A member of the RNA family "Small nucleolar RNA Z199" from Leersia perrieri, 84 nucleotides long. snoZ199 is a C/D box small nucleolar RNA, which acts as a methylation guide RNA for sites on 18S and 25S rRNA. Rice snoZ199 is reported to be homologous to Arabidopsis snoR13. The match comes from Rfam's covariance-model search (86 bits).
RNA sequence: GGGUCAUUUUAUGAGGAAUAAACGGCAACAAUAUGACACGAGCUUUGCUCCUGUGAUUCCUAUGUAUUUAAGUCUCUGAUGAUC
Number, nucleotide and partner (000 for none) at each position: 001g084002g083003g000004u082005c081006a080007u000008u000009u000010u000011a000012u000013g000014a000015g000016g000017a000018a000019u000020a000021a000022a000023c000024g000025g000026c000027a000028a000029c000030a000031a000032u000033a000034u000035g000036a000037c000038a052039c000040g050041a049042g048043c000044u000045u000046u000047g000048c042049u041050c040051c000052u038053g000054u000055g000056a000057u000058u000059c000060c000061u000062a000063u000064g000065u000066a000067u000068u000069u000070a000071a000072g000073u000074c000075u000076c000077u000078g000079a000080u006081g005082a004083u002084c001